[Rfam]
RNA sequence: CUUUAUAGAACCUGCAUUGUACACACUGUGUGUUUUCAUUCCCAUGCACAGCGCAUACAAUGUGGAUACUAUAAGA
Numbered sequence: 001c002u003u004u005a006u007a008g009a010a011c012c013u014g015c016a017u018u019g020u021a022c023a024c025a026c027u028g029u030g031u032g033u034u035u036u037c038a039u040u041c042c043c044a045u046g047c048a049c050a051g052c053g054c055a056u057a058c059a060a061u062g063u064g065g066a067u068a069c070u071a072u073a074a075g076a
Base pairs, nucleotide, nucleotide: 012065013064015062016061017060018059019058020057021056024053026051027050028049029048030047031046
Rfam assigns this 76-nucleotide sequence from Monodelphis domestica to the family "mir-460 microRNA precursor family". Rfam links the family to the GO terms miRNA-mediated post-transcriptional gene silencing and RISC complex. The organism belongs to Monodelphis, within Eukaryota. Rfam 15.1 lists 1,029 matches to the family in 498 species. A reference for the family is Chen et al. (2005), "The developmental miRNA profiles of zebrafish as determined by small RNA cloning", Genes Dev.